[Rfam]
Nucleotides: 093
Base pairs, nucleotide, nucleotide: 006081007080008079009078010077011042012041013040014039016036017028018027019026020025048073049072050071054067055066056065057064
Number, partner (000 for none) and nucleotide at each position: 001000a002000c003000u004000a005000a006081a007080c008079u009078u010077u011042a012041g013040g014039g015000g016036u017028g018027c019026c020025u021000g022000u023000a024000u025020g026019g027018g028017c029000u030000g031000a032000g033000a034000u035000g036016a037000u038000a039014c040013c041012c042011u043000u044000u045000g046000a047000a048073c049072c050071u051000g052000a053000u054067g055066c056065a057064g058000u059000u060000a061000g062000u063000a064057c065056u066055g067054c068000c069000g070000a071050a072049g073048g074000g075000a076000a077010a078009a079008a080007g081006u082000a083000a084000a085000g086000a087000c088000a089000a090000c091000u092000u093000c